[Rfam]
RNA sequence: CGAAAUCUUCAGGGCAGGGUGCGAUUCCCUACCGGCGGUAAAGCCCGCGGGCCGAGAGGCAUGAUCCGGUGUGAUUCCGGAGCCGACAGUAUAGUCUGGAUGAGAGAAGAUGAUG
Numbered sequence: 001c002g003a004a005a006u007c008u009u010c011a012g013g014g015c016a017g018g019g020u021g022c023g024a025u026u027c028c029c030u031a032c033c034g035g036c037g038g039u040a041a042a043g044c045c046c047g048c049g050g051g052c053c054g055a056g057a058g059g060c061a062u063g064a065u066c067c068g069g070u071g072u073g074a075u076u077c078c079g080g081a082g083c084c085g086a087c088a089g090u091a092u093a094g095u096c097u098g099g100a101u102g103a104g105a106g107a108a109g110a111u112g113a114u115g
Base pairs, nucleotide, nucleotide: 005111006110007109008108009107010106017029018028019027031095032094033085034084035048036047037046038045043083044082053059065081066080067079068078069077087098088097089096